The record is an 86-nucleotide RNA from Metabacillus lacus, which matches "Group II catalytic intron D1-D4-1" in Rfam.
[Rfam]
RNA sequence: UAACCUCUCUAGAAAUAGAUAGCUGAACAACCAGAAGUCAGCAGAGGUCAUAGUACCUUACCCACUCGAGACGGUAAGGGAAGGAC
Dot-bracket structure: ((..((.((((....)))).)).))............((....)).(((......((((((............))))))....)))

The match comes from Rfam's covariance-model search (72 bits).
The base pairs follow the family's consensus structure.